The record is a 107-nucleotide RNA sequence from Brassica carinata, which matches "Plant small nucleolar RNA R71" in Rfam. A reference for the family is Brown et al. (2003), "Plant snoRNAs: functional evolution and new modes of gene expression", Trends Plant Sci.

RNA sequence: AAACCAUGGUGUGGCCAUUGAGCUUGGUAGCCCUUGAAUCUCUCCCAGGCUUCACUGAAGCCUUCUAAGUUCUUCUGUUGAAAGCUGGAAAUCUCGUUUCUCAGCUU
Numbered sequence: 001a002a003a004c005c006a007u008g009g010u011g012u013g014g015c016c017a018u019u020g021a022g023c024u025u026g027g028u029a030g031c032c033c034u035u036g037a038a039u040c041u042c043u044c045c046c047a048g049g050c051u052u053c054a055c056u057g058a059a060g061c062c063u064u065c066u067a068a069g070u071u072c073u074u075c076u077g078u079u080g081a082a083a084g085c086u087g088g089a090a091a092u093c094u095c096g097u098u099u100c101u102c103a104g105c106u107u
Base pairs, nucleotide, nucleotide: 001107004104006101057074058073060071
The match comes from Rfam's covariance-model search (81 bits). Taxonomically the source falls in Brassica (Eukaryota, Streptophyta, Streptophytina, Gunneridae).